The family of this 74-nucleotide RNA sequence from Fukomys damarensis is "U1A polyadenylation inhibition element (PIE)".
The family's RNA type in Rfam is cis-regulatory element.
RNA sequence: UCACACAGCAUUUCAGCUAGAGUCUGUUCCCAGACAUUGCACCUGGUGCUGUUAGGCUGGAAUUAAAGUGUCUU
Numbered sequence: 001u002c003a004c005a006c007a008g009c010a011u012u013u014c015a016g017c018u019a020g021a022g023u024c025u026g027u028u029c030c031c032a033g034a035c036a037u038u039g040c041a042c043c044u045g046g047u048g049c050u051g052u053u054a055g056g057c058u059g060g061a062a063u064u065a066a067a068g069u070g071u072c073u074u
Stems, first nucleotide, its partner, number of pairs: 005052005017046004022035005
It scores 80 bits against the family's covariance model.
A reference for the family is Clerte and Hall (2004), "Global and Local Dynamics of the U1A Polyadenylation Inhibition Element (PIE) RNA and PIE RNA-U1A Complexes", Biochemistry.